[Rfam]
The family of this 47-nucleotide sequence from Carrierea calycina is "Plastid-ccsA-ndhD-2 3UTR RNA". For this family Rfam cites "Retrograde signaling in plants: A critical review focusing on the GUN pathway and beyond" (Richter et al., Plant Commun, 2023). The organism belongs to Carrierea, within Eukaryota. From the family's description: Plastid ccsA-ndhD-2 is a non-coding RNA (ncRNA) recognised in plastids. It was found in the three prime untranslated region (3UTR) of ccsA and ndhD genes, its 3UTR location suggests a role in transcript maturation. It is annotated as a cis-regulatory element.

RNA sequence: UGAGAACCUUUUGACUCAAGUAAUGGAGUGAGUCAAAAGGUUCUCAC
Numbered sequence: 001u002g003a004g005a006a007c008c009u010u011u012u013g014a015c016u017c018a019a020g021u022a023a024u025g026g027a028g029u030g031a032g033u034c035a036a037a038a039g040g041u042u043c044u045c046a047c
Base pairs, nucleotide, nucleotide: 001046002045003044004043005042006041007040008039009038010037011036012035013034014033015032016031017030018029